[Rfam]
RNA sequence: GGAGGGAAGCUCAUUGUAGAGGUCACGAGCUGAGUGUUCAUCACUCGACCAAUCACCUCAGGGAAGGUCUGAGACAGGAGCCAAUCGCUGUCCUCACAGGACAUCAUCUGACAAGAUGAGCGAGCGCACAGAAACGUGGGUCACAGCGCGGUGUCCUCGCACGAGACGUUGAUGCUUGUGCAGAAUUCAGCAGAUCAACUGAUGCGAUCCGCAUAGACUUGGAAACACUCGCGGCUGGCGCAACGAGUGCGAUGUGUGAGCUAGCAUGAGGUGCUAGAACCCAAUUCAGACUACUCUCCCUCC
Numbered sequence: 001g002g003a004g005g006g007a008a009g010c011u012c013a014u015u016g017u018a019g020a021g022g023u024c025a026c027g028a029g030c031u032g033a034g035u036g037u038u039c040a041u042c043a044c045u046c047g048a049c050c051a052a053u054c055a056c057c058u059c060a061g062g063g064a065a066g067g068u069c070u071g072a073g074a075c076a077g078g079a080g081c082c083a084a085u086c087g088c089u090g091u092c093c094u095c096a097c098a099g100g101a102c103a104u105c106a107u108c109u110g111a112c113a114a115g116a117u118g119a120g121c122g123a124g125c126g127c128a129c130a131g132a133a134a135c136g137u138g139g140g141u142c143a144c145a146g147c148g149c150g151g152u153g154u155c156c157u158c159g160c161a162c163g164a165g166a167c168g169u170u171g172a173u174g175c176u177u178g179u180g181c182a183g184a185a186u187u188c189a190g191c192a193g194a195u196c197a198a199c200u201g202a203u204g205c206g207a208u209c210c211g212c213a214u215a216g217a218c219u220u221g222g223a224a225a226c227a228c229u230c231g232c233g234g235c236u237g238g239c240g241c242a243a244c245g246a247g248u249g250c251g252a253u254g255u256g257u258g259a260g261c262u263a264g265c266a267u268g269a270g271g272u273g274c275u276a277g278a279a280c281c282c283a284a285u286u287c288a289g290a291c292u293a294c295u296c297u298c299c300c301u302c303c
Base pairs, nucleotide, nucleotide: 001303002302003301004300005299006298007297010260011259012258013257014256019059020058021057022056032046033045034044035043036042069289070288071287072286073285079236080235081234082233089103090102091101092100093099104119105118106117107116108115109114120232121231122230123229124228126226140218141217142216261277262276263275264274265273266272
This 303-nucleotide RNA from Triplophysa rosa belongs to the Rfam family "Nuclear RNase P". It is annotated as a ribozyme. A search with the family's covariance model found it, with a score of 209 bits. The base pairs follow the family's consensus structure, which is taken from published work. The family has 116 seed sequences and 3,848 matches in Rfam 15.1.